A member of the RNA family "Manganese Mn2+ riboswitch aptamer (yybP-ykoY)" from Acinetobacter brisouii, 145 nucleotides long.
Taxonomically the source falls in Acinetobacter brisouii (Bacteria, Pseudomonadota, Gammaproteobacteria, Acinetobacter).
This RNA was originally discovered in E. coli during a large scale screen and was named SraF. The family was later found to exist upstream of related families of protein genes in many bacteria, including the the yybP and ykoK genes in B. subtilis.
The match comes from Rfam's covariance-model search (64 bits).
The base pairs follow the family's consensus structure.
Its family is annotated with manganese ion binding in the Gene Ontology.
RNA sequence: ACACACUUCAUUGGGGAGUAGCCGCUAUUUACGUUUGUAAAUAGAUGAUGGUCAACAUACUUGUUCUGAACCGAACAUGGUCAUCAUAGCAAAGAACCAAAUGAGCUUUUCACCAAGCUUUCUUUUGUUGGCAAGACCUUUGAUU
Numbered sequence: 001a002c003a004c005a006c007u008u009c010a011u012u013g014g015g016g017a018g019u020a021g022c023c024g025c026u027a028u029u030u031a032c033g034u035u036u037g038u039a040a041a042u043a044g045a046u047g048a049u050g051g052u053c054a055a056c057a058u059a060c061u062u063g064u065u066c067u068g069a070a071c072c073g074a075a076c077a078u079g080g081u082c083a084u085c086a087u088a089g090c091a092a093a094g095a096a097c098c099a100a101a102u103g104a105g106c107u108u109u110u111c112a113c114c115a116a117g118c119u120u121u122c123u124u125u126u127g128u129u130g131g132c133a134a135g136a137c138c139u140u141u142g143a144u145u
Stems, first nucleotide, its partner, number of pairs: 026043003045087010062077005